[Rfam]
RNA sequence: UCGCCACAUCAAGAGUUGGGGCGACGCCCGACGCCAACCUGCCUUCCGGGCAAGGUGGCACUUCCGCGAGGAAGGAUGUGGCCGAUCCGGCAACCAAACGGACCCAG
Numbered sequence: 001u002c003g004c005c006a007c008a009u010c011a012a013g014a015g016u017u018g019g020g021g022c023g024a025c026g027c028c029c030g031a032c033g034c035c036a037a038c039c040u041g042c043c044u045u046c047c048g049g050g051c052a053a054g055g056u057g058g059c060a061c062u063u064c065c066g067c068g069a070g071g072a073a074g075g076a077u078g079u080g081g082c083c084g085a086u087c088c089g090g091c092a093a094c095c096a097a098a099c100g101g102a103c104c105c106a107g
Stems, first nucleotide, its partner, number of pairs: 006079005015032001017031001019029003033059003038055003041051003047101001081091004
The record is a 107-nucleotide sequence from Sphingomonas sp. NFR15, which matches "SAM-I/IV (S-adenosyl methionine) riboswitch aptamer" in Rfam. NCBI's taxonomy places the organism under Bacteria, Pseudomonadati, Alphaproteobacteria, Sphingomonadaceae, Sphingomonas. A search with the family's covariance model found it, with a score of 58 bits.